[Rfam]
RNA sequence: GAGGGGAGGCCCCUCGGAACCUGCUUGCAGGAGCAGGUUCCAAACCACCUUCGGCGGCUGUGGCCCCAAAGCCAUGGUCGUGAGCGCGGAAGGAAAAGGCCUGGCAUUGACCGGGUCAGGU
Numbered sequence: 001g002a003g004g005g006g007a008g009g010c011c012c013c014u015c016g017g018a019a020c021c022u023g024c025u026u027g028c029a030g031g032a033g034c035a036g037g038u039u040c041c042a043a044a045c046c047a048c049c050u051u052c053g054g055c056g057g058c059u060g061u062g063g064c065c066c067c068a069a070a071g072c073c074a075u076g077g078u079c080g081u082g083a084g085c086g087c088g089g090a091a092g093g094a095a096a097a098g099g100c101c102u103g104g105c106a107u108u109g110a111c112c113g114g115g116u117c118a119g120g121u
Stems, first nucleotide, its partner, number of pairs: 001015005016041006023034004046120001048093005053087001054081002057078003061074004098117006